[Rfam]
RNA sequence: CGAACCCGCGCGGGAGAGUCCCGGUGCCUCGUCGCACCGGGCGCCGAAGGAGCAAGUCCUCCCUUGAAUCUCUCAGGCACCAGUCACCGCGCGGGCGAG
Numbered sequence: 001c002g003a004a005c006c007c008g009c010g011c012g013g014g015a016g017a018g019u020c021c022c023g024g025u026g027c028c029u030c031g032u033c034g035c036a037c038c039g040g041g042c043g044c045c046g047a048a049g050g051a052g053c054a055a056g057u058c059c060u061c062c063c064u065u066g067a068a069u070c071u072c073u074c075a076g077g078c079a080c081c082a083g084u085c086a087c088c089g090c091g092c093g094g095g096c097g098a099g
Stems, first nucleotide, its partner, number of pairs: 006094008020041008043078003046074002050072003056065001
Glycine riboswitch aptamer: a 99-nucleotide sequence from Streptomyces sp. CNQ-509. Its family is annotated with glycine biosynthetic process in the Gene Ontology. NCBI's taxonomy places the organism under Bacteria, Bacillati, Actinomycetota, Streptomycetaceae, Streptomyces.